[Rfam]
About this RNA: This 591-nucleotide part of an RNA from candidate division TM7 genomosp. GTL1 belongs to the Rfam family "Bacterial small subunit ribosomal RNA". Lineage of the source: Bacteria > Bacteria candidate phyla > Candidatus Saccharimonadota.
RNA sequence: UGACGGGGACCCGCACAAGUAGCGGAUGAUGUUCUUUAAUUCGAUGAUAAGCGAAGAACCUUACCAGGGCUUGACAUCCUGCGAAUUUUUCCGAAAGGAAAAAGUGCCCCAAGAGCACAUAAAAAGUGAUUUUGUGUGUUGUUGGGGGAACGCAGUGACAGGUGCUGCAUGGCCGUCGUCAGCUCGUGUCGUGAGAUGUUUGGUUAAGUCCAUUAACGAGCGCAACCCUUGCAAAUAGUUGGAUUUUUCUAUUUGGACUGCCCCGGCAACGGGGAGGAAGGAGGGGAUGAUGUCAGGUCUUUAUUGCCCUUACGCCCUGGGCUAGAAACGUCAUACAAUGGCCAGUACAAUGCGCAGCGAAGCCGCGAGGUGAAGCAAAUCGCAUCAAAGCUGGUCCCAGUUCGGAUAAGAGGCUGAAACUCGCCUCUUUGAAGCCGGAGUUACUAGUAAUCGCAGGUCAGCAUACUGCGGUGAAUACGUUCCCGGGUCUUGUACACACCGCCCGUCAAACCAUGAAAGUCGGGGGCACCCGAAGUCCUAACUUGUUAGGCCUAAGGUGAACCAGAUGAUUGGGGUUAAGUCGUAACAAGG
Numbered sequence: 001u002g003a004c005g006g007g008g009a010c011c012c013g014c015a016c017a018a019g020u021a022g023c024g025g026a027u028g029a030u031g032u033u034c035u036u037u038a039a040u041u042c043g044a045u046g047a048u049a050a051g052c053g054a055a056g057a058a059c060c061u062u063a064c065c066a067g068g069g070c071u072u073g074a075c076a077u078c079c080u081g082c083g084a085a086u087u088u089u090u091c092c093g094a095a096a097g098g099a100a101a102a103a104g105u106g107c108c109c110c111a112a113g114a115g116c117a118c119a120u121a122a123a124a125a126g127u128g129a130u131u132u133u134g135u136g137u138g139u140u141g142u143u144g145g146g147g148g149a150a151c152g153c154a155g156u157g158a159c160a161g162g163u164g165c166u167g168c169a170u171g172g173c174c175g176u177c178g179u180c181a182g183c184u185c186g187u188g189u190c191g192u193g194a195g196a197u198g199u200u201u202g203g204u205u206a207a208g209u210c211c212a213u214u215a216a217c218g219a220g221c222g223c224a225a226c227c228c229u230u231g232c233a234a235a236u237a238g239u240u241g242g243a244u245u246u247u248u249c250u251a252u253u254u255g256g257a258c259u260g261c262c263c264c265g266g267c268a269a270c271g272g273g274g275a276g277g278a279a280g281g282a283g284g285g286g287a288u289g290a291u292g293u294c295a296g297g298u299c300u301u302u303a304u305u306g307c308c309c310u311u312a313c314g315c316c317c318u319g320g321g322c323u324a325g326a327a328a329c330g331u332c333a334u335a336c337a338a339u340g341g342c343c344a345g346u347a348c349a350a351u352g353c354g355c356a357g358c359g360a361a362g363c364c365g366c367g368a369g370g371u372g373a374a375g376c377a378a379a380u381c382g383c384a385u386c387a388a389a390g391c392u393g394g395u396c397c398c399a400g401u402u403c404g405g406a407u408a409a410g411a412g413g414c415u416g417a418a419a420c421u422c423g424c425c426u427c428u429u430u431g432a433a434g435c436c437g438g439a440g441u442u443a444c445u446a447g448u449a450a451u452c453g454c455a456g457g458u459c460a461g462c463a464u465a466c467u468g469c470g471g472u473g474a475a476u477a478c479g480u481u482c483c484c485g486g487g488u489c490u491u492g493u494a495c496a497c498a499c500c501g502c503c504c505g506u507c508a509a510a511c512c513a514u515g516a517a518a519g520u521c522g523g524g525g526g527c528a529c530c531c532g533a534a535g536u537c538c539u540a541a542c543u544u545g546u547u548a549g550g551c552c553u554a555a556g557g558u559g560a561a562c563c564a565g566a567u568g569a570u571u572g573g574g575g576u577u578a579a580g581u582c583g584u585a586a587c588a589a590g591g
Base pairs, nucleotide, nucleotide: 001496002495003493004492005491007490008489009488010487011486012485013484015480016479019444020443021442022441023440024336026334027333028332029331030330031329032328033327034325035324040055041054042053043052064320065319066318067317068316069315070314077158078157079155080154081153082152083151086103087102088101089100090099091098092097105150107148108147109146110145161309162308164307165306167304170303171302172298173297174296175294177292178291182221183220184219185218186217187216188197189196190195201212202211203210227286228285229284230283232255233254234253235252236251237250238249258277259276261274262273263272264271265270340396341395342394343393344392345391346390352383353382354381357376358375362371363370364369403434408429409428410427411426412425413424414423450472451471452470453469454468455467456466499590501587504583505582509577510576511575512574514572515571516570519567520566521565523563524562527559528558529557530556535552537550538549539548540547541546
Its Rfam clan is "SSU clan".
A reference for the family is Cannone et al. (2002), "The comparative RNA web (CRW) site: an online database of comparative sequence and structure information for ribosomal, intron, and other RNAs", BMC Bioinformatics.